[Rfam]
Shown here is a 99-nucleotide sequence from Theropithecus gelada, a member of the family "Y RNA". Pairs were carried over by alignment from the consensus structure, which is taken from published work. By type it is a non-coding RNA gene.
RNA sequence: AGCUGAUCCAAGUGCAGUGGUAUUUACUACUUGAUCACAACCAGCUACAGAUUUCUUUGUUCCUUCUCCACUACCACUGCUUCAUUUAACUGGCCAAAA
Number, nucleotide and partner (000 for none) at each position: 001a000002g094003c093004u092005g091006a000007u089008c000009c000010a087011a086012g000013u000014g083015c000016a078017g077018u076019g075020g074021u073022a000023u000024u000025u000026a000027c000028u000029a060030c059031u000032u000033g057034a056035u000036c000037a000038c000039a000040a000041c000042c000043a000044g000045c000046u000047a000048c000049a000050g000051a000052u000053u000054u000055c000056u034057u033058u000059g030060u029061u000062c000063c000064u000065u000066c000067u000068c000069c000070a000071c000072u000073a021074c020075c019076a018077c017078u016079g000080c000081u000082u000083c014084a000085u000086u011087u010088a000089a007090c000091u005092g004093g003094c002095c000096a000097a000098a000099a000